[Rfam]
RNA sequence: GUCACGGGAUCGUUAGCAGGAAUCAUAGUAUCGCCGCUUUUCCGCCAAGCGCCCGCCGCCCUGAAUUGGGAAAAGAGUUGCGUGCGUUGACCCGGUCCUCUCGGCUCCGGAUUCCUCAGCCCCCAGCCCCCCGGGGCCGUCAGGAUCGGGUCUGUACGCACAACAAGGAGGGCCAACGAAAGUUGGUCCUUUU
Numbered sequence: 001g002u003c004a005c006g007g008g009a010u011c012g013u014u015a016g017c018a019g020g021a022a023u024c025a026u027a028g029u030a031u032c033g034c035c036g037c038u039u040u041u042c043c044g045c046c047a048a049g050c051g052c053c054c055g056c057c058g059c060c061c062u063g064a065a066u067u068g069g070g071a072a073a074a075g076a077g078u079u080g081c082g083u084g085c086g087u088u089g090a091c092c093c094g095g096u097c098c099u100c101u102c103g104g105c106u107c108c109g110g111a112u113u114c115c116u117c118a119g120c121c122c123c124c125a126g127c128c129c130c131c132c133g134g135g136g137c138c139g140u141c142a143g144g145a146u147c148g149g150g151u152c153u154g155u156a157c158g159c160a161c162a163a164c165a166a167g168g169a170g171g172g173c174c175a176a177c178g179a180a181a182g183u184u185g186g187u188c189c190u191u192u193u
Stems, first nucleotide, its partner, number of pairs: 037167001042049001082161006089152011102139009119127002170189008
The family of this 193-nucleotide RNA sequence is "Bradyrhizobiaceae sRNA BjrC174". It is annotated as a small RNA. Rfam's curators put it in the seed alignment. The pairing is the family consensus, mapped onto this sequence.